[Rfam]
RNA: SAM riboswitch aptamer (S box leader)
Organism: Virgibacillus pantothenticus
RNA sequence: CUCUUAUCAAGAGUGGUGGAGGGAAUAGGCCCUUUGAAACCCGGCAACCUAAAAGCAAUAAUGAUUUGCUUUUUACGGUGCUAAAUCCUACAGACCUUAGAAAUGGUCUGGAAGAUAAGAG
Numbered sequence: 001c002u003c004u005u006a007u008c009a010a011g012a013g014u015g016g017u018g019g020a021g022g023g024a025a026u027a028g029g030c031c032c033u034u035u036g037a038a039a040c041c042c043g044g045c046a047a048c049c050u051a052a053a054a055g056c057a058a059u060a061a062u063g064a065u066u067u068g069c070u071u072u073u074u075a076c077g078g079u080g081c082u083a084a085a086u087c088c089u090a091c092a093g094a095c096c097u098u099a100g101a102a103a104u105g106g107u108c109u110g111g112a113a114g115a116u117a118a119g120a121g
Stems, first nucleotide, its partner, number of pairs: 001121008013042001015041003021032003026090004043082004048078002051073008086113001091110006